[Rfam]
A member of the RNA family "Streptomyces RNA 1601" from Streptomyces xinghaiensis, 212 nucleotides long. On this family, see Vockenhuber et al., RNA Biol 2011: "Deep sequencing-based identification of small non-coding RNAs in Streptomyces coelicolor". Taxonomically the source falls in Streptomyces (Bacteria, Bacillati, Kitasatosporales, Streptomycetaceae). Rfam's curators write: Identified by deep sequencing of transcriptome at the end of exponential growth phase. Appears longer on northern blot than sequencing transcript. Streptomyces specific.
RNA sequence: CACGACCGGUCGGACACUCAUGUGACCGACCCACAAGUGGAGGUUCCGUUCUCCCACCUGACCGGCUUCGCGGCCGGCGGGUCACCGGUCAGGCAGUGCCCUUCGGCCCGCGGUCGCGGCCGGGCGGUACCGCCGAUGCGCCCCACGGUGAACCGUGGCGGUGCUCCCGGUUUCCGCGGAGCUCCGCCUGUGUCCCGUCCGGGGCGUUUUUG
Numbered sequence: 001c002a003c004g005a006c007c008g009g010u011c012g013g014a015c016a017c018u019c020a021u022g023u024g025a026c027c028g029a030c031c032c033a034c035a036a037g038u039g040g041a042g043g044u045u046c047c048g049u050u051c052u053c054c055c056a057c058c059u060g061a062c063c064g065g066c067u068u069c070g071c072g073g074c075c076g077g078c079g080g081g082u083c084a085c086c087g088g089u090c091a092g093g094c095a096g097u098g099c100c101c102u103u104c105g106g107c108c109c110g111c112g113g114u115c116g117c118g119g120c121c122g123g124g125c126g127g128u129a130c131c132g133c134c135g136a137u138g139c140g141c142c143c144c145a146c147g148g149u150g151a152a153c154c155g156u157g158g159c160g161g162u163g164c165u166c167c168c169g170g171u172u173u174c175c176g177c178g179g180a181g182c183u184c185c186g187c188c189u190g191u192g193u194c195c196c197g198u199c200c201g202g203g204g205c206g207u208u209u210u211u212g
Base pairs, nucleotide, nucleotide: 004090005089006088007087008086009085012027013026028083029082030081031080032079034060035059037057038056039055040054041052042051062077063076064075065074066073067072096130097129098128099127100126102123104122105121106120107119108118140205141204142203143202144201146197147196148195154192155191156190157188158187159186160185161184163182164181165180166179167178
Pairs were carried over by alignment from the consensus structure.